The record is a 62-nucleotide RNA sequence from Anolis carolinensis, which matches "mir-34 microRNA precursor family" in Rfam. The family is grouped with related families in Rfam's "mir-34 clan". Lineage of the source: Eukaryota > Vertebrata > Squamata > Iguania > Anolis.

RNA sequence: UUGCCAGGCAGUGUAGUUAGCUGAUUGACGAGGCAACAGUCACUAACAACACGGCCAGGUGA
Numbered sequence: 001u002u003g004c005c006a007g008g009c010a011g012u013g014u015a016g017u018u019a020g021c022u023g024a025u026u027g028a029c030g031a032g033g034c035a036a037c038a039g040u041c042a043c044u045a046a047c048a049a050c051a052c053g054g055c056c057a058g059g060u061g062a
Base pairs, nucleotide, nucleotide: 001062002061003060004059007056008055011052012051013050014049016047017046018045019044020043022042023041024040025039026038027037